Shown here is a 112-nucleotide RNA sequence from Psychromicrobium lacuslunae, a member of the family "mraW RNA". Pairs were carried over by alignment from the consensus structure, which is taken from published work. The match comes from Rfam's covariance-model search (62 bits).
[Rfam]
RNA sequence: UAGACGUUCUUGAACGAGAUCUCCAGCCGCCCUGCGCCACCUGACUCACCUUCCCCGGAGCCAGGCGGAAGGCACGGCGCGGAUGGGGAUCUGGUUUAAGAGCACUCAGAUG
Numbered sequence: 001u002a003g004a005c006g007u008u009c010u011u012g013a014a015c016g017a018g019a020u021c022u023c024c025a026g027c028c029g030c031c032c033u034g035c036g037c038c039a040c041c042u043g044a045c046u047c048a049c050c051u052u053c054c055c056c057g058g059a060g061c062c063a064g065g066c067g068g069a070a071g072g073c074a075c076g077g078c079g080c081g082g083a084u085g086g087g088g089a090u091c092u093g094g095u096u097u098a099a100g101a102g103c104a105c106u107c108a109g110a111u112g
Base pairs, nucleotide, nucleotide: 010099011098012097013096014095015094018091019090021088022087023086024085025084027082028081029080030079031076033074034073035071037068038067040065041064042063043062045060046059047058